[Rfam]
RNA: FMN riboswitch aptamer (RFN element)
RNA sequence: GAACGUGCUCCGGGGUCGGUGUAAUUCCGAACCGGCGGUGACAGUCCGCGACCCGGUCCAGCUUCGAUCAGUGGGCCGGUUGACCUGGUGGAAUUCCGGGACCGACGGUGAAAGUCCGGAUGGUAGGCAGCACGUGA
Dot-bracket structure: ..((((((((......(((.......))).[[((((((.....[[))))...(((((.................)))))....(((((.......)))))]])).(((.....]]))).......)..)))))))..
Numbered sequence: 001g002a003a004c005g006u007g008c009u010c011c012g013g014g015g016u017c018g019g020u021g022u023a024a025u026u027c028c029g030a031a032c033c034g035g036c037g038g039u040g041a042c043a044g045u046c047c048g049c050g051a052c053c054c055g056g057u058c059c060a061g062c063u064u065c066g067a068u069c070a071g072u073g074g075g076c077c078g079g080u081u082g083a084c085c086u087g088g089u090g091g092a093a094u095u096c097c098g099g100g101a102c103c104g105a106c107g108g109u110g111a112a113a114g115u116c117c118g119g120a121u122g123g124u125a126g127g128c129a130g131c132a133c134g135u136g137a
Stems, first nucleotide, its partner, number of pairs: 003135007010126001017029003031115002033104002035049004044102002053079005084100005106118003